[Rfam]
RNA sequence: AUUGGGCGAUCGGUUGAGUAUCCUAUCGGGCUUUUCAAGCCGAUGCCCCUUUAACUAUAGGAGAUAUGUUAGUGGCCCGUAUAGCUGGCAUUAACGUCCCUGAC
Numbered sequence: 001a002u003u004g005g006g007c008g009a010u011c012g013g014u015u016g017a018g019u020a021u022c023c024u025a026u027c028g029g030g031c032u033u034u035u036c037a038a039g040c041c042g043a044u045g046c047c048c049c050u051u052u053a054a055c056u057a058u059a060g061g062a063g064a065u066a067u068g069u070u071a072g073u074g075g076c077c078c079g080u081a082u083a084g085c086u087g088g089c090a091u092u093a094a095c096g097u098c099c100c101u102g103a104c
Stems, first nucleotide, its partner, number of pairs: 004049003009044003022088002027079004035103003
RNA: Alpha operon ribosome binding site